[Rfam]
RNA sequence: CCUGAGGGAGUAGCCGACCCGCGAGAAAGCGGGGGUCUGCGUCAACAUACUUGGCGGUUCCGCCAUGGCGCAGACGACACACUGUCUGGCAAGACUCAUGAUUCGUUGUGACCGGCGGGGGCUGCGUCAUGGCGGGUCAUGCGUCGCGUGCAGCCCCCUCGGAGUCAUC
Numbered sequence: 001c002c003u004g005a006g007g008g009a010g011u012a013g014c015c016g017a018c019c020c021g022c023g024a025g026a027a028a029g030c031g032g033g034g035g036u037c038u039g040c041g042u043c044a045a046c047a048u049a050c051u052u053g054g055c056g057g058u059u060c061c062g063c064c065a066u067g068g069c070g071c072a073g074a075c076g077a078c079a080c081a082c083u084g085u086c087u088g089g090c091a092a093g094a095c096u097c098a099u100g101a102u103u104c105g106u107u108g109u110g111a112c113c114g115g116c117g118g119g120g121g122c123u124g125c126g127u128c129a130u131g132g133c134g135g136g137u138c139a140u141g142c143g144u145c146g147c148g149u150g151c152a153g154c155c156c157c158c159u160c161g162g163a164g165u166c167a168u169c
Base pairs, nucleotide, nucleotide: 018033019032020031035075036074037073038072039071040070041069042068043067044066052065053064054063055062056061076168079165080164082162083161084160

A member of the RNA family "Manganese Mn2+ riboswitch aptamer (yybP-ykoY)" from Vogesella sp. LIG4, 169 nucleotides long. Rfam links the family to the GO term manganese ion binding.